[Rfam]
RNA sequence: AUCAAUCUGCAGGGGGUCAUUGUAGAAGCAUGCUCGUCGUGACCCCUGCCAGCCCUUUUCAGGGCUGCAAUUCUACA
Numbered sequence: 001a002u003c004a005a006u007c008u009g010c011a012g013g014g015g016g017u018c019a020u021u022g023u024a025g026a027a028g029c030a031u032g033c034u035c036g037u038c039g040u041g042a043c044c045c046c047u048g049c050c051a052g053c054c055c056u057u058u059u060c061a062g063g064g065c066u067g068c069a070a071u072u073c074u075a076c077a
Stems, first nucleotide, its partner, number of pairs: 013046006021077007028040002050067007
Rfam assigns this 77-nucleotide RNA sequence from Parnassius apollo to the family "Mammalian CPEB3 ribozyme". Pairs were carried over by alignment from the consensus structure, which is taken from published work. NCBI's taxonomy places the organism under Eukaryota, Ecdysozoa, Panorpida, Ditrysia, Parnassius. A search with the family's covariance model found it, with a score of 52 bits.